A member of the RNA family "c-di-GMP-I riboswitch aptamer" from Gorillibacterium sp., 74 nucleotides long. The source organism's lineage runs through Bacteria, Bacilli, Caryophanales, Paenibacillaceae and Gorillibacterium. The family's consensus secondary structure is taken from published work. The match comes from Rfam's covariance-model search (65 bits).
[Rfam]
RNA sequence: AACGGCAAACCUAUCGAAAGGUAGGGACGCAAAGCUAAAGGGCCUUCCGCUAAGGAUGGCAGCCAGCUACCGAA
Numbered sequence: 001a002a003c004g005g006c007a008a009a010c011c012u013a014u015c016g017a018a019a020g021g022u023a024g025g026g027a028c029g030c031a032a033a034g035c036u037a038a039a040g041g042g043c044c045u046u047c048c049g050c051u052a053a054g055g056a057u058g059g060c061a062g063c064c065a066g067c068u069a070c071c072g073a074a
Stems, first nucleotide, its partner, number of pairs: 005030002010025006033068004040064002042060003046056003